[Rfam]
RNA sequence: GGUCACGAGUGUCAGCGCUAAACCCCGGUUUGCUGGCCGGCAACCCUCCUCUUCGCGGCGGGGUGCCCCGGGUGACGACCAGGCCGUCCCUGACUGGGAUGGCAAGCGCGGACA
Numbered sequence: 001g002g003u004c005a006c007g008a009g010u011g012u013c014a015g016c017g018c019u020a021a022a023c024c025c026c027g028g029u030u031u032g033c034u035g036g037c038c039g040g041c042a043a044c045c046c047u048c049c050u051c052u053u054c055g056c057g058g059c060g061g062g063g064u065g066c067c068c069c070g071g072g073u074g075a076c077g078a079c080c081a082g083g084c085c086g087u088c089c090c091u092g093a094c095u096g097g098g099a100u101g102g103c104a105a106g107c108g109c110g111g112a113c114a
Base pairs, nucleotide, nucleotide: 001080002079003078004077009038011037012036013035014034015033016032021030022029039067040066041065044063045062046061048058049057083103084102085101086100087099088098089097090096
A member of the RNA family "SAM (S-adenosyl methionine) riboswitch aptamer" from Arthrobacter sp. Bz4, 114 nucleotides long.
It scores 105 bits against the family's covariance model.
The source organism's lineage runs through Bacteria, Actinomycetes, Micrococcales, Micrococcaceae and Arthrobacter.
Pairs were carried over by alignment from the consensus structure, which is taken from published work.